NiCo (Nickel/Cobalt) riboswitch aptamer: a 92-nucleotide RNA from Papillibacter cinnamivorans. It scores 72 bits against the family's covariance model. The family's consensus secondary structure is taken from published work. Rfam links the family to the GO terms metal ion homeostasis and cobalt ion binding. Lineage of the source: Bacteria > Bacillota > Eubacteriales > Papillibacter > Papillibacter cinnamivorans.

RNA sequence: ACAGUACAAACUGAGCAGGCGAUGGAUCCGGGAGGAUCCGUGGGGCUGGGCCUUUCGAGGCAACAGAUGAUAUGCACAUCUGUGGGACAGUG
Numbered sequence: 001a002c003a004g005u006a007c008a009a010a011c012u013g014a015g016c017a018g019g020c021g022a023u024g025g026a027u028c029c030g031g032g033a034g035g036a037u038c039c040g041u042g043g044g045g046c047u048g049g050g051c052c053u054u055u056c057g058a059g060g061c062a063a064c065a066g067a068u069g070a071u072a073u074g075c076a077c078a079u080c081u082g083u084g085g086g087a088c089a090g091u092g
Base pairs, nucleotide, nucleotide: 010091011090012089013088016086018047019046020045022041023040024039025038026037027036050061051060052059053058063083064082065081066080067079068078